RNA sequence: AAUAUAAUGAAAUGUAAGUCGCUUUGGAUAAAAGCAUCUGCCAAAUGCUGAAAU
Numbered sequence: 001a002a003u004a005u006a007a008u009g010a011a012a013u014g015u016a017a018g019u020c021g022c023u024u025u026g027g028a029u030a031a032a033a034g035c036a037u038c039u040g041c042c043a044a045a046u047g048c049u050g051a052a053a054u
Stems, first nucleotide, its partner, number of pairs: 013043001014041003021035005

A member of the RNA family "UnaL2 LINE 3' element" from Triplophysa rosa, 54 nucleotides long. It is annotated as a cis-regulatory element. A search with the family's covariance model found it, with a score of 57 bits. A reference for the family is Baba et al. (2004), "Solution structure of an RNA stem-loop derived from the 3' conserved region of eel LINE UnaL2", RNA. The family's consensus secondary structure is taken from published work.